[Rfam]
RNA sequence: CAGUUAGGGGGAUGAUGUACUAUAGGCGGGCUUUGAAGCUUCAAGCUUUUCUUGAUAUGGCUUCUGAAACCGGUAAGCUG
Numbered sequence: 001c002a003g004u005u006a007g008g009g010g011g012a013u014g015a016u017g018u019a020c021u022a023u024a025g026g027c028g029g030g031c032u033u034u035g036a037a038g039c040u041u042c043a044a045g046c047u048u049u050u051c052u053u054g055a056u057a058u059g060g061c062u063u064c065u066g067a068a069a070c071c072g073g074u075a076a077g078c079u080g
Stems, first nucleotide, its partner, number of pairs: 001080005
The family of this 80-nucleotide sequence from Citrus x clementina is "Small nucleolar RNA J33". The pairing is the family consensus, mapped onto this sequence. Its family is annotated with nucleolus and RNA processing in the Gene Ontology. The family has 5 seed sequences and 831 matches in Rfam 15.1. A reference for the family is Chen et al. (2003), "The high diversity of snoRNAs in plants: identification and comparative study of 120 snoRNA genes from Oryza sativa", Nucleic Acids Res.